The family of this 74-nucleotide RNA from Crocodylus porosus is "Mammalian CPEB3 ribozyme". The source organism's lineage runs through Eukaryota, Eumetazoa, Euteleostomi, Archelosauria and Crocodylus. A search with the family's covariance model found it, with a score of 39 bits. The family's consensus secondary structure is taken from published work.

[Rfam]
RNA sequence: GUUGCACAUUUGAGGCCAUCAGAAGCACUCACAGUGUGGUCCUGUCAGAUUCCAACAUAUCUGCAAAUUCUGCU
Numbered sequence: 001g002u003u004g005c006a007c008a009u010u011u012g013a014g015g016c017c018a019u020c021a022g023a024a025g026c027a028c029u030c031a032c033a034g035u036g037u038g039g040u041c042c043u044g045u046c047a048g049a050u051u052c053c054a055a056c057a058u059a060u061c062u063g064c065a066a067a068u069u070c071u072g073c074u
Stems, first nucleotide, its partner, number of pairs: 012042001014041004020072005025037003046063005